[Rfam]
RNA: mir-196 microRNA precursor family
Organism: Nothobranchius furzeri
RNA sequence: UGCGUGGUUUAGGUAGUCUCGUGUUGUUGGGUUGUUUGGAUUUCCCCAGAACAUGAAACUGCCUGAAUUACCUC
Numbered sequence: 001u002g003c004g005u006g007g008u009u010u011a012g013g014u015a016g017u018c019u020c021g022u023g024u025u026g027u028u029g030g031g032u033u034g035u036u037u038g039g040a041u042u043u044c045c046c047c048a049g050a051a052c053a054u055g056a057a058a059c060u061g062c063c064u065g066a067a068u069u070a071c072c073u074c
Stems, first nucleotide, its partner, number of pairs: 004071014019056001022053004027048001029046003
Dot-bracket structure: ...((((((((((((((.(..((((.(.(((............))).).))))..).))))))))))))))...